A member of the RNA family "small Cajal body-specific RNA 17" from Otolemur garnettii, 134 nucleotides long. On this family, see Darzacq et al., EMBO J 2002: "Cajal body-specific small nuclear RNAs: a novel class of 2'-O-methylation and pseudouridylation guide RNAs". Pairs were carried over by alignment from the consensus structure, which is taken from published work. scaRNAs are a specific class of small nuclear RNAs which localise to the Cajal bodies and guide the modification of RNA polymerase II transcribed spliceosomal RNAs U1, U2, U4, U5 and U12. The complete human U12-22/U4-8 scaRNA is composed of two tandem C/D box domains (termed U12-22 and U4-8). Lineage of the source: Eukaryota > Opisthokonta > Eumetazoa > Amniota > Otolemur. Rfam 15.1 lists 262 matches to the family in 128 species. The match comes from Rfam's covariance-model search (108 bits). Rfam links the family to the GO terms nucleolus, Cajal body and RNA processing.
RNA sequence: CUCUCAGGUCCUCAAUACAGCCCUCAAAUGGGCCUGCAAUAUUUUCCAUAUACAAUCAGGUUCCCUUGCUGCUUACCCAGAGCCUGAGAGAAUUAUGAAAACAUGGCAGGUGAAGUGGGGCCAGGGACCCGGAG
Numbered sequence: 001c002u003c004u005c006a007g008g009u010c011c012u013c014a015a016u017a018c019a020g021c022c023c024u025c026a027a028a029u030g031g032g033c034c035u036g037c038a039a040u041a042u043u044u045u046c047c048a049u050a051u052a053c054a055a056u057c058a059g060g061u062u063c064c065c066u067u068g069c070u071g072c073u074u075a076c077c078c079a080g081a082g083c084c085u086g087a088g089a090g091a092a093u094u095a096u097g098a099a100a101a102c103a104u105g106g107c108a109g110g111u112g113a114a115g116u117g118g119g120g121c122c123a124g125g126g127a128c129c130c131g132g133a134g
Stems, first nucleotide, its partner, number of pairs: 001134003005131001007129005013124001020121005056087006063080001068076001